Background
Actinobacteria sRNA Ms_IGR-7: a 119-nucleotide sequence from Mycobacterium lacus. It scores 53 bits against the family's covariance model. For this family Rfam cites "Identification of small RNAs in Mycobacterium smegmatis using heterologous Hfq" (Li et al., RNA, 2013). Pairs were carried over by alignment from the consensus structure.
RNA sequence: CGGAAGCGCCUUUCUCGUAGCUGGUCGAAUUUUCGCUUGAGGACACCGAUCAUCCCAGCUCAGAGGGGCACUUUCCGCAUUACGAGACCCGCCCGGCCGAACUGCAUCAGUGGAUCGAG
Numbered sequence: 001c002g003g004a005a006g007c008g009c010c011u012u013u014c015u016c017g018u019a020g021c022u023g024g025u026c027g028a029a030u031u032u033u034c035g036c037u038u039g040a041g042g043a044c045a046c047c048g049a050u051c052a053u054c055c056c057a058g059c060u061c062a063g064a065g066g067g068g069c070a071c072u073u074u075c076c077g078c079a080u081u082a083c084g085a086g087a088c089c090c091g092c093c094c095g096g097c098c099g100a101a102c103u104g105c106a107u108c109a110g111u112g113g114a115u116c117g118a119g
Base pairs, nucleotide, nucleotide: 002075003074004073005072006071008069009068010067011066012065013064019060021058022057023056024055029050030049035044098117099116100115103114105112106111